[Rfam]
RNA sequence: ACCGGUAGGAAGCUCACUGUAGAGGUCACGCGCAGAGUGUUCGUCACUCAACCAAUUACCUCGGGGAAGGUCUGAGACAAGAGCCAAUCGCUGUCCUCACAGGACAUCAUCUGAUUAGAUGAGCGAGUGCACAGAGAAUAUGGUCAAAGCGCGGUCUUCUCGCACGAGACGUUGAUCGUAGCAAUUUCAGCAUGUCAACCGAUGCGAUCCCCGCUGACUUGGAAACGCUCGCGGCUGGCGCAACGAGUCCAAUGUGUGAGCUAGUGCAGAGUACUAGAACCCAAUUCAGACUACUCUCCCUCCGCU
Numbered sequence: 001a002c003c004g005g006u007a008g009g010a011a012g013c014u015c016a017c018u019g020u021a022g023a024g025g026u027c028a029c030g031c032g033c034a035g036a037g038u039g040u041u042c043g044u045c046a047c048u049c050a051a052c053c054a055a056u057u058a059c060c061u062c063g064g065g066g067a068a069g070g071u072c073u074g075a076g077a078c079a080a081g082a083g084c085c086a087a088u089c090g091c092u093g094u095c096c097u098c099a100c101a102g103g104a105c106a107u108c109a110u111c112u113g114a115u116u117a118g119a120u121g122a123g124c125g126a127g128u129g130c131a132c133a134g135a136g137a138a139u140a141u142g143g144u145c146a147a148a149g150c151g152c153g154g155u156c157u158u159c160u161c162g163c164a165c166g167a168g169a170c171g172u173u174g175a176u177c178g179u180a181g182c183a184a185u186u187u188c189a190g191c192a193u194g195u196c197a198a199c200c201g202a203u204g205c206g207a208u209c210c211c212c213g214c215u216g217a218c219u220u221g222g223a224a225a226c227g228c229u230c231g232c233g234g235c236u237g238g239c240g241c242a243a244c245g246a247g248u249c250c251a252a253u254g255u256g257u258g259a260g261c262u263a264g265u266g267c268a269g270a271g272u273a274c275u276a277g278a279a280c281c282c283a284a285u286u287c288a289g290a291c292u293a294c295u296c297u298c299c300c301u302c303c304g305c306u
Stems, first nucleotide, its partner, number of pairs: 001306001003304002008299003013260005022062004035049005072289005082236004092106005107122006123232007143218003261277007
Shown here is a 306-nucleotide RNA sequence from Triplophysa tibetana, a member of the family "Nuclear RNase P".
From the family's description: Ribonuclease P (RNase P) is a ubiquitous endoribonuclease, found in archaea, bacteria and eukarya as well as chloroplasts and mitochondria.
Pairs were carried over by alignment from the consensus structure, which is taken from published work.
The match comes from Rfam's covariance-model search (209 bits).
By type it is a ribozyme.